RNA sequence: CGAUUGGUGCAGGGGUUUCUAUCGGCCUCCAGCAGCUACGAUCGUUGUAGGCCGGCGGAAACUACUUGCUCCUGUCG
Numbered sequence: 001c002g003a004u005u006g007g008u009g010c011a012g013g014g015g016u017u018u019c020u021a022u023c024g025g026c027c028u029c030c031a032g033c034a035g036c037u038a039c040g041a042u043c044g045u046u047g048u049a050g051g052c053c054g055g056c057g058g059a060a061a062c063u064a065c066u067u068g069c070u071c072c073u074g075u076c077g
Base pairs, nucleotide, nucleotide: 006072007071010068011067012066013065014063015062016061017060018059019058020057022055023054024053025052026051027050028049030047031046032045
Background: This 77-nucleotide sequence from Cephus cinctus belongs to the Rfam family "mir-2796 microRNA precursor family". Pairs were carried over by alignment from the consensus structure, which was predicted with RNAalifold.